[Rfam]
RNA sequence: GUCUUAUCAAGAGUGGGCGAGAGAACGGGCUUGAUGACCCCACAGCAACCUGCCGCUGGCAAGGUGCUAAAACCCGCAAAGCGAGUUCGCUUUGGAUGAUAAGAA
Numbered sequence: 001g002u003c004u005u006a007u008c009a010a011g012a013g014u015g016g017g018c019g020a021g022a023g024a025a026c027g028g029g030c031u032u033g034a035u036g037a038c039c040c041c042a043c044a045g046c047a048a049c050c051u052g053c054c055g056c057u058g059g060c061a062a063g064g065u066g067c068u069a070a071a072a073c074c075c076g077c078a079a080a081g082c083g084a085g086u087u088c089g090c091u092u093u094g095g096a097u098g099a100u101a102a103g104a105a
Stems, first nucleotide, its partner, number of pairs: 002104007013043005021032003026076004044068004049064002051061004072097001077094006
Dot-bracket structure: .(((((((....(((((...(((..[[[[)))......)))))((((.((((((...)))).))))))...(]]]]((((((......))))))..)))))))).

SAM riboswitch aptamer (S box leader): a 105-nucleotide RNA from Geobacillus thermodenitrificans. Rfam's curators write: The SAM riboswitch is found upstream of a number of genes which code for proteins involved in methionine or cysteine biosynthesis in Gram-positive bacteria. Taxonomically the source falls in Geobacillus thermodenitrificans (Bacteria, Bacilli, Anoxybacillaceae, Geobacillus).